[Rfam]
c-di-GMP-I riboswitch aptamer: an 85-nucleotide sequence from Paenibacillus arenilitoris. Rfam describes the family as follows. GEMM was predicted in a large-scale screen for bacterial structured RNA regulatory elements. Genes associated with GEMM are involved in a diverse array of functions, including chemotaxis regulation, signal transduction, secretion and chitin. The family's consensus secondary structure is taken from published work. NCBI's taxonomy places the organism under Bacteria, Bacillota, Bacilli, Paenibacillaceae, Paenibacillus.
RNA sequence: AACUGAAAAAGGCAAACUUUCCGAAAGGAAAGGACGCAAAGUCAUGGGCCUAAGGCGCUAGCGCAACGGUCGCCAGACUGCCGGC
Numbered sequence: 001a002a003c004u005g006a007a008a009a010a011g012g013c014a015a016a017c018u019u020u021c022c023g024a025a026a027g028g029a030a031a032g033g034a035c036g037c038a039a040a041g042u043c044a045u046g047g048g049c050c051u052a053a054g055g056c057g058c059u060a061g062c063g064c065a066a067c068g069g070u071c072g073c074c075a076g077a078c079u080g081c082c083g084g085c
Stems, first nucleotide, its partner, number of pairs: 012037002017032006040079004045075003048070003055064003